[Rfam]
RNA: M-box riboswitch aptamer (ykoK leader)
RNA sequence: AAUAACAUCUGUUAGGUGAGGCUCCUAUAUGGACACACGCUACUGCCCUGCAAAUAUCCAAAGAUGUUUGAAAAAGUUUGGACGAAUGGUUCAACGGGUUAACAGGAAUGGUCGACUUAAGGCUUUUCUUAAUGUAGCUGAUACGUGUAUCUACGCCAUGUAGUGCUAAAGCUCAACGAAGAGGUCAUA
Numbered sequence: 001a002a003u004a005a006c007a008u009c010u011g012u013u014a015g016g017u018g019a020g021g022c023u024c025c026u027a028u029a030u031g032g033a034c035a036c037a038c039g040c041u042a043c044u045g046c047c048c049u050g051c052a053a054a055u056a057u058c059c060a061a062a063g064a065u066g067u068u069u070g071a072a073a074a075a076g077u078u079u080g081g082a083c084g085a086a087u088g089g090u091u092c093a094a095c096g097g098g099u100u101a102a103c104a105g106g107a108a109u110g111g112u113c114g115a116c117u118u119a120a121g122g123c124u125u126u127u128c129u130u131a132a133u134g135u136a137g138c139u140g141a142u143a144c145g146u147g148u149a150u151c152u153a154c155g156c157c158a159u160g161u162a163g164u165g166c167u168a169a170a171g172c173u174c175a176a177c178g179a180a181g182a183g184g185u186c187a188u189a
Stems, first nucleotide, its partner, number of pairs: 005185002008182003011177002013120001015173003020167003025163008039138005045099004105129004111123003140151003